[Rfam]
This 84-nucleotide RNA sequence from Chlorocebus sabaeus belongs to the Rfam family "mir-548 microRNA precursor family". Gene Ontology terms of the family: miRNA-mediated post-transcriptional gene silencing and RISC complex. The family has 11 seed sequences and 3,009 matches in Rfam 15.1.
RNA sequence: UAUUAGGUUGGUGCAAAAGUGGUUGUGAUUUUUGCCGUUAAAAGUAACAGCAAAAACUACAAUUACUUUUGCACCAACCUAAUA
Number, nucleotide and partner (000 for none) at each position: 001u084002a083003u082004u081005a080006g079007g078008u077009u076010g075011g074012u073013g072014c071015a070016a069017a068018a067019g066020u065021g064022g063023u062024u061025g060026u059027g058028a000029u056030u055031u054032u053033u052034g051035c050036c000037g048038u047039u046040a045041a000042a000043a000044g000045u040046a039047a038048c037049a000050g035051c034052a033053a032054a031055a030056a029057c000058u027059a026060c025061a024062a023063u022064u021065a020066c019067u018068u017069u016070u015071g014072c013073a012074c011075c010076a009077a008078c007079c006080u005081a004082a003083u002084a001
Annotation:
The literature on the family includes a 2010 paper in BMC Biol by Witten et al., "Ultra-high throughput sequencing-based small RNA discovery and discrete statistical biomarker analysis in a collection of cervical tumours and matched controls".